[Rfam]
RNA: FMN riboswitch aptamer (RFN element)
RNA sequence: UCCUGUUCUCAGGGCGGGGUGAAAUUCCCCACCGGCGGUGAUAGCCCGCGAGCGCGCAAAACCCCGGCAAAAGGGGCACUGCGGUCAGCAGAUUUCGGUGGAAUUCCGAAGCCGACGGUUACAGUCCGGAUGGGAGAGGAUGAAC
Numbered sequence: 001u002c003c004u005g006u007u008c009u010c011a012g013g014g015c016g017g018g019g020u021g022a023a024a025u026u027c028c029c030c031a032c033c034g035g036c037g038g039u040g041a042u043a044g045c046c047c048g049c050g051a052g053c054g055c056g057c058a059a060a061a062c063c064c065c066g067g068c069a070a071a072a073g074g075g076g077c078a079c080u081g082c083g084g085u086c087a088g089c090a091g092a093u094u095u096c097g098g099u100g101g102a103a104u105u106c107c108g109a110a111g112c113c114g115a116c117g118g119u120u121a122c123a124g125u126c127c128g129g130a131u132g133g134g135a136g137a138g139g140a141u142g143a144a145c
Stems, first nucleotide, its partner, number of pairs: 004142007017029003031125002033114002035049004044112002052089002094110005116128003